[Rfam]
RNA sequence: GAUCAAUGAUGAAAAUAGCCAAAUCUGAGUAUCAGAAGACCUCAGUCUGCCUGACACAUGAUCUCUAGAGUUCUGAGA
Numbered sequence: 001g002a003u004c005a006a007u008g009a010u011g012a013a014a015a016u017a018g019c020c021a022a023a024u025c026u027g028a029g030u031a032u033c034a035g036a037a038g039a040c041c042u043c044a045g046u047c048u049g050c051c052u053g054a055c056a057c058a059u060g061a062u063c064u065c066u067a068g069a070g071u072u073c074u075g076a077g078a
Stems, first nucleotide, its partner, number of pairs: 029057002032054002037048004

Source information:
The family of this 78-nucleotide RNA from Castor canadensis is "Small nucleolar RNA U2-19". The base pairs follow the family's consensus structure, which is taken from published work. Taxonomically the source falls in Castor (Eukaryota, Eumetazoa, Chordata, Rodentia). By type it is a C/D-box small nucleolar RNA. Its family is annotated with RNA processing and nucleolus in the Gene Ontology.